[Rfam]
RNA: Small nucleolar RNA SNORD81
RNA sequence: UACAAUCCAUGAUGAUCUCUGCCUCAGUCUGAGCUCUCACUGAUUAUUUGACAACAAUAAAAGAUCUGAUAUUCUG
Numbered sequence: 001u002a003c004a005a006u007c008c009a010u011g012a013u014g015a016u017c018u019c020u021g022c023c024u025c026a027g028u029c030u031g032a033g034c035u036c037u038c039a040c041u042g043a044u045u046a047u048u049u050g051a052c053a054a055c056a057a058u059a060a061a062a063g064a065u066c067u068g069a070u071a072u073u074c075u076g
Base pairs, nucleotide, nucleotide: 001076002075004073005072006071